[Rfam]
RNA sequence: CCCUGACAGUGACAUCAAGUUACUGACAAUAGCCAAGACAGGAGAUCCAUAUG
Numbered sequence: 001c002c003c004u005g006a007c008a009g010u011g012a013c014a015u016c017a018a019g020u021u022a023c024u025g026a027c028a029a030u031a032g033c034c035a036a037g038a039c040a041g042g043a044g045a046u047c048c049a050u051a052u053g
Stems, first nucleotide, its partner, number of pairs: 002042004007025005

The family of this 53-nucleotide sequence is "Mu-gpT-DE RNA".
The family's consensus secondary structure is taken from published work.
By type it is a small RNA.